RNA sequence: CUUGACGGACCCCAGCCACAUUGGCCGGUCGUCGGAGUGCUCCUCGCCGUACGUGGCGAGCAACGCCUGGGCCUC
Numbered sequence: 001c002u003u004g005a006c007g008g009a010c011c012c013c014a015g016c017c018a019c020a021u022u023g024g025c026c027g028g029u030c031g032u033c034g035g036a037g038u039g040c041u042c043c044u045c046g047c048c049g050u051a052c053g054u055g056g057c058g059a060g061c062a063a064c065g066c067c068u069g070g071g072c073c074u075c
Base pairs, nucleotide, nucleotide: 015025016024017023032070033069038065039064043060044059045058047056048055049054
RNA: ASpks TB sRNA
Organism: Streptomyces poonensis